[Rfam]
RNA sequence: GCCAGGAUAGCUCAGUUGGUAGAGCAACUGAUUCGUAAUCAGUAGGUCGUCGGUUCAACUCCGAUUCCUGGCU
Numbered sequence: 001g002c003c004a005g006g007a008u009a010g011c012u013c014a015g016u017u018g019g020u021a022g023a024g025c026a027a028c029u030g031a032u033u034c035g036u037a038a039u040c041a042g043u044a045g046g047u048c049g050u051c052g053g054u055u056c057a058a059c060u061c062c063g064a065u066u067c068c069u070g071g072c073u
Stems, first nucleotide, its partner, number of pairs: 001072007010025004027043005049065005
RNA: tRNA
Organism: Paucidesulfovibrio gracilis